[Rfam]
RNA sequence: UUUGUAAGAACCUUUUGAAUAAAAGUAAAGUAGUGAUUCAAAAGGUUCUCAAUG
Numbered sequence: 001u002u003u004g005u006a007a008g009a010a011c012c013u014u015u016u017g018a019a020u021a022a023a024a025g026u027a028a029a030g031u032a033g034u035g036a037u038u039c040a041a042a043a044g045g046u047u048c049u050c051a052a053u054g
Base pairs, nucleotide, nucleotide: 005051007049008048009047010046011045012044013043014042015041016040017039018038019037020036022034
The record is a 54-nucleotide RNA from Quercus lobata, which matches "Plastid-ccsA-ndhD-2 3UTR RNA" in Rfam.
A search with the family's covariance model found it, with a score of 56 bits.
Taxonomically the source falls in Quercus (Eukaryota, Viridiplantae, Tracheophyta, fabids).